[Rfam]
RNA sequence: AGCACUGAAUGAAAUCUGCACCCAGUAGAAAUUUCCUGUUGUGGUGUUCAUUAUGCAGUGCGACAGUAUCUCAGCAAGUGGCAUCGUUGGCUUUCAGGCCUCUUGUGUUUGUAAGCCUGGUUUUUAUGCUGGGACAAUA
Numbered sequence: 001a002g003c004a005c006u007g008a009a010u011g012a013a014a015u016c017u018g019c020a021c022c023c024a025g026u027a028g029a030a031a032u033u034u035c036c037u038g039u040u041g042u043g044g045u046g047u048u049c050a051u052u053a054u055g056c057a058g059u060g061c062g063a064c065a066g067u068a069u070c071u072c073a074g075c076a077a078g079u080g081g082c083a084u085c086g087u088u089g090g091c092u093u094u095c096a097g098g099c100c101u102c103u104u105g106u107g108u109u110u111g112u113a114a115g116c117c118u119g120g121u122u123u124u125u126a127u128g129c130u131g132g133g134a135c136a137a138u139a
Stems, first nucleotide, its partner, number of pairs: 002061006018047005024040005064128002068124001071120004080109005
Small nucleolar RNA SNORA8: a 139-nucleotide RNA from Leptobrachium leishanense. The base pairs follow the family's consensus structure, which was predicted with RNAfold. The family is grouped with related families in Rfam's "SNORA8 clan". Rfam's curators write: ACA8 is a member of the H/ACA class of snoRNA that guide the sites of modification of uridines to pseudouridines. The source organism's lineage runs through Eukaryota, Eumetazoa, Craniata, Dipnotetrapodomorpha and Leptobrachium.